This 142-nucleotide RNA from Marispirochaeta aestuarii belongs to the Rfam family "FMN riboswitch aptamer (RFN element)".
RNA sequence: UAUUUUCUUCGAGGGAGGGACCUAAAGUCCCGACCGGCGGUAACAGUCCGCAAUCCCUGUACCGGUUUCGUUGAGACGGCACAGGGGGGAUUCGGUGGGAUUCCGAAACCGACAGUGAAAGUCUGGAUGGGAGAAGAAAAUA
Dot-bracket structure: ..((((((((......(((.........))).[[((((((.....[[))))..(((((((....................)))))))...(((((.......)))))]])).(((.....]]))).......))))))))..